[Rfam]
RNA sequence: AUGCACCCAAUUCCGCUUAAGUACCACUCACGUCCUGUGAGUAACAGCGGAAUGUCACCUUCCUGGUUC
Numbered sequence: 001a002u003g004c005a006c007c008c009a010a011u012u013c014c015g016c017u018u019a020a021g022u023a024c025c026a027c028u029c030a031c032g033u034c035c036u037g038u039g040a041g042u043a044a045c046a047g048c049g050g051a052a053u054g055u056c057a058c059c060u061u062c063c064u065g066g067u068u069c
Stems, first nucleotide, its partner, number of pairs: 011052007027041005057067003
Bacillaceae-1 RNA: a 69-nucleotide sequence from Evansella caseinilytica. The source organism's lineage runs through Bacteria, Bacillati, Caryophanales, Bacillaceae and Evansella. It is annotated as a small RNA.